[Rfam]
RNA: Group II catalytic intron D1-D4-1
Organism: Posidoniimonas polymericola
RNA sequence: AACGCCGCGGAGCCAUCCACGGCGGGCGAGGCAGGAGUCAGCCGAGGUCGUAGUACCGACCCUCGAAAACCAAUCGAGACGGGAAGGAC
Numbered sequence: 001a002a003c004g005c006c007g008c009g010g011a012g013c014c015a016u017c018c019a020c021g022g023c024g025g026g027c028g029a030g031g032c033a034g035g036a037g038u039c040a041g042c043c044g045a046g047g048u049c050g051u052a053g054u055a056c057c058g059a060c061c062c063u064c065g066a067a068a069a070c071c072a073a074u075c076g077a078g079a080c081g082g083g084a085a086g087g088a089c
Base pairs, nucleotide, nucleotide: 004023005022006021007020009018010017011016038045039044047089048088049087056082057081058080063077064076065075